Group II catalytic intron D1-D4-3: a 159-nucleotide RNA sequence from Bacteroides sp. CAG:714.
RNA sequence: UUCAUCGUGAGGUGGAAUCUGAAAAAAGCUGACGGUAAAUAUUUGGCUUGACGUACAGAAACUUUCGGUAACGCAAUCAAAAAGGGUGGAACCCAUGAGGCCCCACCCUUUUUAUGCGAUUUUAAAUACCGUUCAAGUGCGGUUUAAAAACGGAUUAUU
Numbered sequence: 001u002u003c004a005u006c007g008u009g010a011g012g013u014g015g016a017a018u019c020u021g022a023a024a025a026a027a028g029c030u031g032a033c034g035g036u037a038a039a040u041a042u043u044u045g046g047c048u049u050g051a052c053g054u055a056c057a058g059a060a061a062c063u064u065u066c067g068g069u070a071a072c073g074c075a076a077u078c079a080a081a082a083a084g085g086g087u088g089g090a091a092c093c094c095a096u097g098a099g100g101c102c103c104c105a106c107c108c109u110u111u112u113u114a115u116g117c118g119a120u121u122u123u124a125a126a127u128a129c130c131g132u133u134c135a136a137g138u139g140c141g142g143u144u145u146a147a148a149a150a151c152g153g154a155u156u157a158u159u
Stems, first nucleotide, its partner, number of pairs: 001016006028159001030157003035151002041144001043142003046138005066131004073127001077125001079123001081122003084103004
Background:
The match comes from Rfam's covariance-model search (48 bits). NCBI's taxonomy places the organism under Bacteria, Bacteroidia, Bacteroidales, Bacteroidaceae, Bacteroides.